[Rfam]
RNA: mir-2060 microRNA precursor family
RNA sequence: GUGUGUGUGGAUUGUGUUCAGUACCAAGUACAGGCAUGUUUACCUGUGUGUGGAUGGUGUUCAGUACUAAGGACAGGCAUGUUUACCU
Dot-bracket structure: .(((.......(.(((((.(((((((.(.(((((.(....).))))).).....))))))).))))).)...))).............